[Rfam]
RNA sequence: GGUUGAGCAAAUUUAUAUUUGUUUUCAAGAGCUUUGAAUUUCUGGGGUGGGAAAUU
Numbered sequence: 001g002g003u004u005g006a007g008c009a010a011a012u013u014u015a016u017a018u019u020u021g022u023u024u025u026c027a028a029g030a031g032c033u034u035u036g037a038a039u040u041u042c043u044g045g046g047g048u049g050g051g052a053a054a055u056u
Stems, first nucleotide, its partner, number of pairs: 003028003006023006037056007
RNA: Na+ riboswitch aptamer (DUF1646)